[Rfam]
RNA sequence: GAUAUGCAGGCGCCCAUCCUCCUCCCAGGGUCGCCUGCGGGAACAACAGCACUCCUCCUCCCAGCUGUCGUUCGGUUCUUUUCGAAAGCCUGCCGCACCUCCUCCCGCGGCAGGCUUUUUCG
Number, nucleotide and partner (000 for none) at each position: 001g000002a000003u000004a000005u000006g000007c037008a036009g000010g034011c033012g032013c030014c029015c028016a000017u000018c000019c000020u000021c000022c000023u000024c000025c000026c000027a000028g015029g014030g013031u000032c012033g011034c010035c000036u008037g007038c000039g000040g000041g073042a072043a071044c070045a000046a068047c067048a066049g065050c064051a000052c000053u000054c000055c000056u000057c000058c000059u000060c000061c000062c000063a000064g050065c049066u048067g047068u046069c000070g044071u043072u042073c041074g000075g000076u000077u000078c000079u000080u000081u000082u000083c000084g000085a000086a117087a116088g115089c114090c113091u112092g111093c110094c109095g108096c107097a000098c000099c000100u000101c000102c000103u000104c000105c000106c000107g096108c095109g094110g093111c092112a091113g090114g089115c088116u087117u086118u000119u000120u000121c000122g000
Overview
This 122-nucleotide RNA from Rhizobium etli belongs to the Rfam family "Alphaproteobacterial ar14". Its family is annotated with biological process involved in symbiotic interaction in the Gene Ontology. Rfam's curators write: Smr14C2 was renamed NfeR1 (Nodule Formation Efficiency RNA) highly expressed in salt stress and during the symbiotic interaction on legume roots. By type it is a small RNA. NCBI's taxonomy places the organism under Bacteria, Pseudomonadota, Alphaproteobacteria, Rhizobiaceae, Rhizobium etli. A reference for the family is del Val et al. (2012), "A survey of sRNA families in alpha-proteobacteria", RNA Biol.